RNA sequence: AGCACUGUGUUGAAACCCAUGGAUGGGAAUCUUUCCCAUUCUUGGUGAUGCUGUAGUGCAAAAAUAUCCCUGGCUCUUUCUUUUUGGACAGCCGACUUUGUGCCAUCCUGCUGUUGCUACGUGGAAUUAAGGAACAUGA
Numbered sequence: 001a002g003c004a005c006u007g008u009g010u011u012g013a014a015a016c017c018c019a020u021g022g023a024u025g026g027g028a029a030u031c032u033u034u035c036c037c038a039u040u041c042u043u044g045g046u047g048a049u050g051c052u053g054u055a056g057u058g059c060a061a062a063a064a065u066a067u068c069c070c071u072g073g074c075u076c077u078u079u080c081u082u083u084u085u086g087g088a089c090a091g092c093c094g095a096c097u098u099u100g101u102g103c104c105a106u107c108c109u110g111c112u113g114u115u116g117c118u119a120c121g122u123g124g125a126a127u128u129a130a131g132g133a134a135c136a137u138g139a
Stems, first nucleotide, its partner, number of pairs: 002059008015046003021041007067134001069132003072128002075125003082121001086117001088115001089113004094108001
RNA: Small nucleolar RNA SNORA46
Organism: Sousa chinensis